[Rfam]
RNA sequence: AAUGACGUUGUUGUUAUUGGUUUAUGCGGUCCCGCCGCGUACCGGCUAGAACCCGGCACUAUAGGAGAAAAACAAUG
Dot-bracket structure: ((((((......))))))....(((((((.....)))))))((((.......)))).....................